[Rfam]
RNA sequence: CCCCGUGUCAUUGGGGAGUAGCCGCCUUCCGUUUUGAGAAGGGGAUGCGUCAACAGACUCGGGUAUUGGACCAUGGUCCCGAACCCGUGGCGUAUUCAGCCCGUCGGUUUACCGAUAGAGCGCUUGGCGAGACCUUUGGCUGCGGCUGCUGUCUCAAAGGGGCUGGGCGGGCGGUCCGGCCAUUGGUUUGUCCGCCUGCCUC
Number, nucleotide and partner (000 for none) at each position: 001c000002c000003c000004c000005g000006u000007g000008u000009c000010a000011u000012u000013g000014g000015g000016g000017a000018g000019u000020a000021g000022c000023c000024g000025c000026c041027u040028u000029c000030c000031g000032u000033u000034u000035u000036g000037a000038g000039a000040a027041g026042g000043g097044g096045a095046u094047g093048c092049g091050u090051c089052a088053a000054c000055a000056g000057a000058c000059u000060c087061g086062g085063g084064u083065a000066u000067u000068g000069g000070a000071c000072c000073a000074u000075g000076g000077u000078c000079c000080c000081g000082a000083a064084c063085c062086c061087g060088u052089g051090g050091c049092g048093u047094a046095u045096u044097c043098a000099g000100c000101c000102c000103g202104u000105c000106g000107g000108u000109u000110u000111a000112c000113c000114g000115a000116u000117a000118g000119a000120g000121c000122g000123c000124u000125u000126g000127g000128c000129g000130a000131g000132a000133c000134c000135u000136u000137u000138g000139g000140c000141u000142g000143c000144g000145g000146c000147u000148g000149c000150u000151g000152u000153c000154u000155c000156a000157a000158a000159g000160g000161g000162g000163c000164u000165g000166g000167g000168c000169g000170g000171g000172c000173g000174g000175u000176c000177c000178g000179g000180c000181c000182a000183u000184u000185g000186g000187u000188u000189u000190g000191u000192c000193c000194g000195c000196c000197u000198g000199c000200c000201u000202c103
Manganese Mn2+ riboswitch aptamer (yybP-ykoY): a 202-nucleotide RNA from Hwanghaeella grinnelliae. The organism belongs to Hwanghaeella, within Bacteria. The pairing is the family consensus, mapped onto this sequence. From the family's description: This RNA was originally discovered in E. coli during a large scale screen and was named SraF. The family was later found to exist upstream of related families of protein genes in many bacteria, including the the yybP and ykoK genes in B. subtilis. The specific functions of these proteins are unknown, but this structured RNA element may be involved in their genetic regulation as a riboswitch.